[Rfam]
RNA sequence: AACAUUAUGUCUUUAGCUUUUUUUCGCAUCUUUUUUUACUUUAGCACCUGAAUUCAGGGGGCUUUGCGCGUAAGAAAAGAAACGAAAAGUAGCGCCUGAGCCUCCGUUGUGGAGGCUUUUUUGUU
Numbered sequence: 001a002a003c004a005u006u007a008u009g010u011c012u013u014u015a016g017c018u019u020u021u022u023u024u025c026g027c028a029u030c031u032u033u034u035u036u037u038a039c040u041u042u043a044g045c046a047c048c049u050g051a052a053u054u055c056a057g058g059g060g061g062c063u064u065u066g067c068g069c070g071u072a073a074g075a076a077a078a079g080a081a082a083c084g085a086a087a088a089g090u091a092g093c094g095c096c097u098g099a100g101c102c103u104c105c106g107u108u109g110u111g112g113a114g115g116c117u118u119u120u121u122u123g124u125u
Stems, first nucleotide, its partner, number of pairs: 016093003021088006029080006036073004047058003059069001061067002098118009
Shown here is a 125-nucleotide sequence from Photorhabdus laumondii, a member of the family "Phenylalanine leader peptide". On this family, see Zurawski et al., Proc Natl Acad Sci U S A 1978: "Nucleotide sequence of the leader region of the phenylalanine operon of Escherichia coli". It is annotated as a cis-regulatory leader.